Shown here is a 133-nucleotide RNA sequence from Leptonychotes weddellii, a member of the family "ODC internal ribosome entry site (IRES)". For this family Rfam cites "Alternative splicing facilitates internal ribosome entry on the ornithine decarboxylase mRNA" (Pyronnet et al., Cell Mol Life Sci, 2005).
RNA sequence: AUCUCCACUGCAGCCCACAGGGCACACGGAUCUUCAGUGGGACUUGGAAUUCCCGGGAAUUGCCUUUGUGAAAUGCUGGCCAAAAUUUCCCUGAAUUCCAUCUCUUAGUUUUCCAUGGGAACAUCAAGAAACC
Numbered sequence: 001a002u003c004u005c006c007a008c009u010g011c012a013g014c015c016c017a018c019a020g021g022g023c024a025c026a027c028g029g030a031u032c033u034u035c036a037g038u039g040g041g042a043c044u045u046g047g048a049a050u051u052c053c054c055g056g057g058a059a060u061u062g063c064c065u066u067u068g069u070g071a072a073a074u075g076c077u078g079g080c081c082a083a084a085a086u087u088u089c090c091c092u093g094a095a096u097u098c099c100a101u102c103u104c105u106u107a108g109u110u111u112u113c114c115a116u117g118g119g120a121a122c123a124u125c126a127a128g129a130a131a132c133c
Stems, first nucleotide, its partner, number of pairs: 006079001010076003016070001019066006026060001039054004086131004096121004